[Rfam]
RNA sequence: CGCACGAAGAUUCGCUCUCGUGCAUUCUACCUCCCUGUUGGACUUGGCCGAGCUUCAUGCUCGGCCUUUUUU
Numbered sequence: 001c002g003c004a005c006g007a008a009g010a011u012u013c014g015c016u017c018u019c020g021u022g023c024a025u026u027c028u029a030c031c032u033c034c035c036u037g038u039u040g041g042a043c044u045u046g047g048c049c050g051a052g053c054u055u056c057a058u059g060c061u062c063g064g065c066c067u068u069u070u071u072u
Stems, first nucleotide, its partner, number of pairs: 002023005046066008
This 72-nucleotide RNA sequence from Profundibacterium mesophilum belongs to the Rfam family "Singlet oxygen resistance RNA X". Gene Ontology term of the family: response to photooxidative stress. For this family Rfam cites "Regulation of a polyamine transporter by the conserved 3' UTR-derived sRNA SorX confers resistance to singlet oxygen and organic hydroperoxides in Rhodobacter sphaeroides" (Peng et al., RNA Biol, 2016). From the family's description: SorX (RSs2461)like SorY is a singlet oxygen induced sRNA that counteracts oxidative stress by targeting mRNA for a transporter in Rhodobacter. It also has an impact on resistance against organic hydroperoxides. It targets SD sequence of potA mRNA via an aSD sequence. It scores 53 bits against the family's covariance model.